U12 minor spliceosomal RNA: a 164-nucleotide RNA sequence from Acanthamoeba castellanii. Gene Ontology terms of the family: pre-mRNA branch point binding, U12 snRNP and mRNA branch site recognition. Taxonomically the source falls in Acanthamoeba castellanii (Eukaryota, Amoebozoa, Centramoebida, Acanthamoeba). Pairs were carried over by alignment from the consensus structure. The literature on the family includes a 1997 paper in Trends Biochem Sci by Tarn and Steitz, "Pre-mRNA splicing: the discovery of a new spliceosome doubles the challenge".

RNA sequence: UAGCCUUAAACUAAUGAGUAAGGAAAAUACCGCACCGGUUGACACCGGUGUUAUGGCGUGAACCGCGUUCACGUCGGCUUCCAAUUUCUGGCGGGCUACAGGCCUCGGCCCUCUUGUAGUGACCUGCGCCUACUUUCGCGCGGGAUGCUCGAGUUGGCUGGCCU
Numbered sequence: 001u002a003g004c005c006u007u008a009a010a011c012u013a014a015u016g017a018g019u020a021a022g023g024a025a026a027a028u029a030c031c032g033c034a035c036c037g038g039u040u041g042a043c044a045c046c047g048g049u050g051u052u053a054u055g056g057c058g059u060g061a062a063c064c065g066c067g068u069u070c071a072c073g074u075c076g077g078c079u080u081c082c083a084a085u086u087u088c089u090g091g092c093g094g095g096c097u098a099c100a101g102g103c104c105u106c107g108g109c110c111c112u113c114u115u116g117u118a119g120u121g122a123c124c125u126g127c128g129c130c131u132a133c134u135u136u137c138g139c140g141c142g143g144g145a146u147g148c149u150c151g152a153g154u155u156g157g158c159u160g161g162c163c164u
Stems, first nucleotide, its partner, number of pairs: 004023005032051007055078001057076002100164005107159004113153001115151002119148003123144001125142005